[Rfam]
Nucleotides: 075
Base pairs, nucleotide, nucleotide: 015025016024017023031071038065039064043060044059047056048055049054
Number, partner (000 for none) and nucleotide at each position: 001000c002000u003000u004000g005000a006000c007000g008000g009000a010000g011000c012000c013000g014000a015025g016024c017023c018000a019000c020000a021000a022000c023017g024016g025015c026000c027000g028000c029000u030000c031071c032000g033000g034000c035000g036000g037000g038065c039064g040000c041000u042000g043060u044059u045000g046000u047056c048055c049054g050000u051000a052000g053000g054049u055048g056047g057000c058000g059044a060043g061000g062000a063000u064039c065038g066000c067000c068000u069000g070000g071031g072000c073000c074000u075000c